[Rfam]
RNA sequence: GGCUGAUUCGAGUGCAGUGGUGUAUCCAACUAAUUGAUCACAACCAGUUACAGAUUCCUUCGUUCCUUCUUCACUCCCACUGCUUCAUUUGACUACCCGAAA
Numbered sequence: 001g002g003c004u005g006a007u008u009c010g011a012g013u014g015c016a017g018u019g020g021u022g023u024a025u026c027c028a029a030c031u032a033a034u035u036g037a038u039c040a041c042a043a044c045c046a047g048u049u050a051c052a053g054a055u056u057c058c059u060u061c062g063u064u065c066c067u068u069c070u071u072c073a074c075u076c077c078c079a080c081u082g083c084u085u086c087a088u089u090u091g092a093c094u095a096c097c098c099g100a101a102a
Stems, first nucleotide, its partner, number of pairs: 001098002004095002007092002010090002014086001016081005022076001028064003032060002
Y RNA: a 102-nucleotide RNA sequence from Propithecus coquereli. Rfam describes the family as follows. Y RNAs are components of the Ro ribonucleoprotein particle (Ro RNP), in association with Ro60 and La proteins. The Y RNAs and Ro60 and La proteins are well conserved, but the function of the Ro RNP is not known. In humans the RNA component can be one of four small RNAs -- hY1, hY3, hY4 and hY5. These small RNAs are predicted to fold into a conserved secondary structure containing three stem structures. The largest of the four, hY1, contains an additional hairpin. This family includes a significant number of annotated pseudogenes and the model is expected to discriminate poorly between real and Y RNA related pseudogenes. Taxonomically the source falls in Propithecus (Eukaryota, Opisthokonta, Teleostomi, Tetrapoda).